[Rfam]
RNA sequence: CGAGAGAUUCAUGGCUAAGGAACUAGGCAAAAUCGACCCGUAACUUCGGGAGAAGGGUCGCCCAUCUUAUGAUGGGCCGCAGUGAAAAGGUCCAGGCGACUGUUUAUCAAAAACACAGGGCUAUGCUAAAUAGAAAUAUGACGUAUAUGGCCUGACACCUGCCCGGUGCCGGAAGGUUAAGAGGAGAUGUUAUCUUCGGAGAAGCAUUGAAUUGAAGCCCCGGUAAACGGCGGCCGUAACUAUAACGGUCCUAAGGUAGCGAAAUUCCUUGUCGGGUAAGUUCCGACCUGCACGAAUGGUGCAACGAUCUGGACACUGUCUCAGCCAUGAGCUCG
Numbered sequence: 001c002g003a004g005a006g007a008u009u010c011a012u013g014g015c016u017a018a019g020g021a022a023c024u025a026g027g028c029a030a031a032a033u034c035g036a037c038c039c040g041u042a043a044c045u046u047c048g049g050g051a052g053a054a055g056g057g058u059c060g061c062c063c064a065u066c067u068u069a070u071g072a073u074g075g076g077c078c079g080c081a082g083u084g085a086a087a088a089g090g091u092c093c094a095g096g097c098g099a100c101u102g103u104u105u106a107u108c109a110a111a112a113a114c115a116c117a118g119g120g121c122u123a124u125g126c127u128a129a130a131u132a133g134a135a136a137u138a139u140g141a142c143g144u145a146u147a148u149g150g151c152c153u154g155a156c157a158c159c160u161g162c163c164c165g166g167u168g169c170c171g172g173a174a175g176g177u178u179a180a181g182a183g184g185a186g187a188u189g190u191u192a193u194c195u196u197c198g199g200a201g202a203a204g205c206a207u208u209g210a211a212u213u214g215a216a217g218c219c220c221c222g223g224u225a226a227a228c229g230g231c232g233g234c235c236g237u238a239a240c241u242a243u244a245a246c247g248g249u250c251c252u253a254a255g256g257u258a259g260c261g262a263a264a265u266u267c268c269u270u271g272u273c274g275g276g277u278a279a280g281u282u283c284c285g286a287c288c289u290g291c292a293c294g295a296a297u298g299g300u301g302c303a304a305c306g307a308u309c310u311g312g313a314c315a316c317u318g319u320c321u322c323a324g325c326c327a328u329g330a331g332c333u334c335g
Stems, first nucleotide, its partner, number of pairs: 001335004009330008018321003035059005044049001060077007078082001090314007097306002101115003118153008126143001130139003156301004161231003166228002168224005175219003181213002186208005193200002232250006251255001261288001271287006
The family of this 335-nucleotide part of an RNA from Aquimarina spongiae is "Bacterial large subunit ribosomal RNA".
It scores 2752 bits against the family's covariance model.
Lineage of the source: Bacteria > Bacteroidota > Flavobacteriia > Flavobacteriales > Aquimarina.